[Rfam]
The record is a 115-nucleotide RNA sequence from Moraxella nonliquefaciens, which matches "Glycine riboswitch aptamer" in Rfam. From the family's description: This family represents the bacterial glycine riboswitch. The match comes from Rfam's covariance-model search (45 bits). Pairs were carried over by alignment from the consensus structure.
RNA sequence: AUUAACCACUCUGGAGAGCGUGCUUGCACCACCGAAGGGAACAAGUGGGUGAUUUGAUUUGACAACUGACAAAUCACCUGACGAAAAUCUCAGGUAACAGGACAGAUGGGGUGUU
Numbered sequence: 001a002u003u004a005a006c007c008a009c010u011c012u013g014g015a016g017a018g019c020g021u022g023c024u025u026g027c028a029c030c031a032c033c034g035a036a037g038g039g040a041a042c043a044a045g046u047g048g049g050u051g052a053u054u055u056g057a058u059u060u061g062a063c064a065a066c067u068g069a070c071a072a073a074u075c076a077c078c079u080g081a082c083g084a085a086a087a088u089c090u091c092a093g094g095u096a097a098c099a100g101g102a103c104a105g106a107u108g109g110g111g112u113g114u115u
Stems, first nucleotide, its partner, number of pairs: 006110002010106004020029003031095003034091002038089002045082002
Dot-bracket structure: .....((..((((......(((....))).(((((..((.....((..................................)).....)))).))).......))))..)).....